[Rfam]
RNA: Group II catalytic intron D1-D4-1
RNA sequence: CAACCGUUGGAGCGAUCCAACGCUGAACGGACAGAAGUCAGCAGAGGUCAUAGUACUCGUCUAGCUUAAGAUAGAAGGGGAAGGAC
Number, nucleotide and partner (000 for none) at each position: 001c025002a024003a000004c000005c022006g021007u020008u019009g018010g017011a016012g000013c000014g000015a000016u011017c010018c009019a008020a007021c006022g005023c000024u002025g001026a000027a000028c000029g000030g000031a000032c000033a000034g000035a000036a000037g000038u045039c044040a000041g000042c000043a000044g039045a038046g000047g086048u085049c084050a000051u000052a000053g000054u000055a000056c079057u078058c077059g000060u075061c074062u000063a000064g000065c000066u000067u000068a000069a000070g000071a000072u000073a000074g061075a060076a000077g058078g057079g056080g000081a000082a000083g000084g049085a048086c047